[Rfam]
RNA: Vault RNA
RNA sequence: GCGCUGGUGUAGCUCAGUGGUUACUUCAAAACUUUCUCUAUCAGAAAUGUUCUGUACCUCUGCAAAGGGGUUCGAACCAUGGGCGCUGUCCAGUGUUUUG
Numbered sequence: 001g002c003g004c005u006g007g008u009g010u011a012g013c014u015c016a017g018u019g020g021u022u023a024c025u026u027c028a029a030a031a032c033u034u035u036c037u038c039u040a041u042c043a044g045a046a047a048u049g050u051u052c053u054g055u056a057c058c059u060c061u062g063c064a065a066a067g068g069g070g071u072u073c074g075a076a077c078c079a080u081g082g083g084c085g086c087u088g089u090c091c092a093g094u095g096u097u098u099u100g
Stems, first nucleotide, its partner, number of pairs: 002095006012084004017080004025076003029072001